[Rfam]
RNA: Small nucleolar RNA snoR109
Organism: Morus notabilis
RNA sequence: CGGCUGUAGCCAAAUCCAACGGCUGAGAAGUUAACUGGCCGCUUAUUGUGAGACAAUCUUUCCCGUCGAUAAAUCUGCUUACCGAACUUCUCACAUUU
Numbered sequence: 001c002g003g004c005u006g007u008a009g010c011c012a013a014a015u016c017c018a019a020c021g022g023c024u025g026a027g028a029a030g031u032u033a034a035c036u037g038g039c040c041g042c043u044u045a046u047u048g049u050g051a052g053a054c055a056a057u058c059u060u061u062c063c064c065g066u067c068g069a070u071a072a073a074u075c076u077g078c079u080u081a082c083c084g085a086a087c088u089u090c091u092c093a094c095a096u097u098u
Stems, first nucleotide, its partner, number of pairs: 025092008037079003041075001043073002045070004